[Rfam]
RNA sequence: UGGGGACAAGGAAGCUUAAGGAGUCACAAAAGAGCGCUUGUCGCUCUUCUUCACUCCUGGGAAGGUCUGAGAUAAGGUCACUUCAUUCCCGAGACGGGAAGUGUAGUAAAUGCACGUGAAGGAACCAGAAAAAGUAUUGCAUAACUCCACAAAUUGUCCACGACGCCAGUUUGGCUGAGACAGGGUUGAUGCAAUUGAGAAUUUUUCACGACUAGCAGUGCUAAGUGCGAUGGCUUCUCCUAAAACUCAAUUCAGACUACUCUGUAACCAA
Numbered sequence: 001u002g003g004g005g006a007c008a009a010g011g012a013a014g015c016u017u018a019a020g021g022a023g024u025c026a027c028a029a030a031a032g033a034g035c036g037c038u039u040g041u042c043g044c045u046c047u048u049c050u051u052c053a054c055u056c057c058u059g060g061g062a063a064g065g066u067c068u069g070a071g072a073u074a075a076g077g078u079c080a081c082u083u084c085a086u087u088c089c090c091g092a093g094a095c096g097g098g099a100a101g102u103g104u105a106g107u108a109a110a111u112g113c114a115c116g117u118g119a120a121g122g123a124a125c126c127a128g129a130a131a132a133a134g135u136a137u138u139g140c141a142u143a144a145c146u147c148c149a150c151a152a153a154u155u156g157u158c159c160a161c162g163a164c165g166c167c168a169g170u171u172u173g174g175c176u177g178a179g180a181c182a183g184g185g186u187u188g189a190u191g192c193a194a195u196u197g198a199g200a201a202u203u204u205u206u207c208a209c210g211a212c213u214a215g216c217a218g219u220g221c222u223a224a225g226u227g228c229g230a231u232g233g234c235u236u237c238u239c240c241u242a243a244a245a246c247u248c249a250a251u252u253c254a255g256a257c258u259a260c261u262c263u264g265u266a267a268c269c270a271a
Base pairs, nucleotide, nucleotide: 001270002269003268006265007264008263013236014235016233017232019058020057021056022055023054032046033045034044035043036042067255068254069253070252071251076213077212078211079210086100087099088098089097090096101115102114103113104112105111116209117208118207119206120205121204122203137194138193139192140191141190

The family of this 271-nucleotide RNA from Trichinella papuae is "Nuclear RNase P". Rfam 15.1 lists 3,848 matches to the family in 1,862 species. It scores 122 bits against the family's covariance model. About the family: Ribonuclease P (RNase P) is a ubiquitous endoribonuclease, found in archaea, bacteria and eukarya as well as chloroplasts and mitochondria. Its best characterised activity is the generation of mature 5'-ends of tRNAs by cleaving the 5'-leader elements of precursor-tRNAs. Cellular RNase Ps are ribonucleoproteins. The source organism's lineage runs through Eukaryota, Metazoa, Eumetazoa, Nematoda and Trichinella.